The record is a 151-nucleotide RNA from Fervidicella metallireducens, which matches "RT-14 RNA" in Rfam. The organism belongs to Fervidicella metallireducens, within Bacteria. By type it is a small RNA.
[Rfam]
RNA sequence: CUCUACUCUCGUGGUCAGAUGGUAUAUACUCAAGGGUAUGUAUCCAGUACAGAGAGGAUAAAGGGGCUUAUUUCCAUGCCAUAAGGCAAAAAAUAUAUUUGUUGUGAAUGCUGAAAGUAAUCUUUUUAUAGAUAAAAUCCGCAACGCACAA
Numbered sequence: 001c002u003c004u005a006c007u008c009u010c011g012u013g014g015u016c017a018g019a020u021g022g023u024a025u026a027u028a029c030u031c032a033a034g035g036g037u038a039u040g041u042a043u044c045c046a047g048u049a050c051a052g053a054g055a056g057g058a059u060a061a062a063g064g065g066g067c068u069u070a071u072u073u074c075c076a077u078g079c080c081a082u083a084a085g086g087c088a089a090a091a092a093a094u095a096u097a098u099u100u101g102u103u104g105u106g107a108a109u110g111c112u113g114a115a116a117g118u119a120a121u122c123u124u125u126u127u128a129u130a131g132a133u134a135a136a137a138u139c140c141g142c143a144a145c146g147c148a149c150a151a
Base pairs, nucleotide, nucleotide: 003057006056007055008054009053014050015049021044022043023042024041025040026039027038028037029036078087079086080085102151103150104149105148106147109143110142111141113139114138120133121132122131123130